[Rfam]
RNA sequence: UAUCGAUAAGGGCAAACCCGCUCGAAAGACGGGGACGCAAAGCUUCAGGCCUACAGGAUAAAUCCCAGGGUAGCUGAGCCGCCGAA
Numbered sequence: 001u002a003u004c005g006a007u008a009a010g011g012g013c014a015a016a017c018c019c020g021c022u023c024g025a026a027a028g029a030c031g032g033g034g035a036c037g038c039a040a041a042g043c044u045u046c047a048g049g050c051c052u053a054c055a056g057g058a059u060a061a062a063u064c065c066c067a068g069g070g071u072a073g074c075u076g077a078g079c080c081g082c083c084g085a086a
Stems, first nucleotide, its partner, number of pairs: 012038002017033004022029002042079003046076003049071003056065003
RNA: c-di-GMP-I riboswitch aptamer
Organism: Cohnella nanjingensis